[Rfam]
RNA sequence: GCCGAGCUUGGUUAUUUGAGCUUGUGACCCAAAUGGGGGCAUCAAGUUUGUGGAAUGUUUGGGCUGGCCCAGAUGGUAGGGCUUGAUGGGCUAAUUUCUGGCCUGCCCUCUCCAAGCACAGAGUUGGAUCAAGUGGCCCAGUCGAAGGAAUGGGCUAAUGGAUUCCUAAAGUGGGGCGGACCGCGUGAGGCUGGUUUAACAGAGCAACGAAUAGCUCCCGAUCUGUGUAGUGGAAGGAUAACGGGCUGGUGUCCUCUAAGCCCAACAAAUGCCUGAUAGGCUGCUCCAAUUAAACCACAAACUUU
Numbered sequence: 001g002c003c004g005a006g007c008u009u010g011g012u013u014a015u016u017u018g019a020g021c022u023u024g025u026g027a028c029c030c031a032a033a034u035g036g037g038g039g040c041a042u043c044a045a046g047u048u049u050g051u052g053g054a055a056u057g058u059u060u061g062g063g064c065u066g067g068c069c070c071a072g073a074u075g076g077u078a079g080g081g082c083u084u085g086a087u088g089g090g091c092u093a094a095u096u097u098c099u100g101g102c103c104u105g106c107c108c109u110c111u112c113c114a115a116g117c118a119c120a121g122a123g124u125u126g127g128a129u130c131a132a133g134u135g136g137c138c139c140a141g142u143c144g145a146a147g148g149a150a151u152g153g154g155c156u157a158a159u160g161g162a163u164u165c166c167u168a169a170a171g172u173g174g175g176g177c178g179g180a181c182c183g184c185g186u187g188a189g190g191c192u193g194g195u196u197u198a199a200c201a202g203a204g205c206a207a208c209g210a211a212u213a214g215c216u217c218c219c220g221a222u223c224u225g226u227g228u229a230g231u232g233g234a235a236g237g238a239u240a241a242c243g244g245g246c247u248g249g250u251g252u253c254c255u256c257u258a259a260g261c262c263c264a265a266c267a268a269a270u271g272c273c274u275g276a277u278a279g280g281c282u283g284c285u286c287c288a289a290u291u292a293a294a295c296c297a298c299a300a301a302c303u304u305u
Base pairs, nucleotide, nucleotide: 001040002039003038004023005022006021007020008019009018010017011016028037029036030035044304045303046302047301048300049299050298051297052296053295056292057291059289060288061287062285063284064283066281069279071277075273076272077271078270079263080262081261082260083259084258085257088254089253090252092251093250098249099248100247101246102245103244104243105242107237108236111234112233113232114231116228117227118226119225120224121223122222124220126165127164128163129162130161132159134157135156136155137154138153139152140151142149143148166171173218174217175216176215177214184209185208186207191202192201193200
RNA: Plant signal recognition particle RNA